The family of this 90-nucleotide RNA from Loktanella sp. 3ANDIMAR09 is "Rhodo-rpoB RNA". NCBI's taxonomy places the organism under Bacteria, Pseudomonadota, Rhodobacterales, Roseobacteraceae, Loktanella. The family's RNA type in Rfam is cis-regulatory element.

RNA sequence: UGAUCGAGAGGUCUUCGGUGGGACGAAGGCCAGGAAUAGAUCGCUUGCUCCCGGUCAUAAGCAUCCGUCCCGCGGCCCGGGCGGAACGAG
Numbered sequence: 001u002g003a004u005c006g007a008g009a010g011g012u013c014u015u016c017g018g019u020g021g022g023a024c025g026a027a028g029g030c031c032a033g034g035a036a037u038a039g040a041u042c043g044c045u046u047g048c049u050c051c052c053g054g055u056c057a058u059a060a061g062c063a064u065c066c067g068u069c070c071c072g073c074g075g076c077c078c079g080g081g082c083g084g085a086a087c088g089a090g
Stems, first nucleotide, its partner, number of pairs: 001043005010031008064090001066088003070084003